[Rfam]
RNA sequence: UUCUUUGCUGACGUAGUGAUUACCUUACCCAGUGCUCAGUGACAGUUGCUUCCUGUCAGCCUGCUGGCACUGCUGAGCUGACAGCUCCUUCACUCUGAGGA
Numbered sequence: 001u002u003c004u005u006u007g008c009u010g011a012c013g014u015a016g017u018g019a020u021u022a023c024c025u026u027a028c029c030c031a032g033u034g035c036u037c038a039g040u041g042a043c044a045g046u047u048g049c050u051u052c053c054u055g056u057c058a059g060c061c062u063g064c065u066g067g068c069a070c071u072g073c074u075g076a077g078c079u080g081a082c083a084g085c086u087c088c089u090u091c092a093c094u095c096u097g098a099g100g101a
Base pairs, nucleotide, nucleotide: 001101002100003099021083024080030072031071032070033069034068039064040063041057042056043055044054045053
Description:
A member of the RNA family "Small nucleolar RNA SNORD16" from Thryothorus ludovicianus, 101 nucleotides long. The literature on the family includes a 1993 paper in EMBO J by Fragapane et al., "A novel small nucleolar RNA (U16) is encoded inside a ribosomal protein intron and originates by processing of the pre-mRNA". Pairs were carried over by alignment from the consensus structure, which was predicted with PFOLD. Gene Ontology terms of the family: RNA processing and nucleolus. The family has 5 seed sequences and 1,321 matches in Rfam 15.1.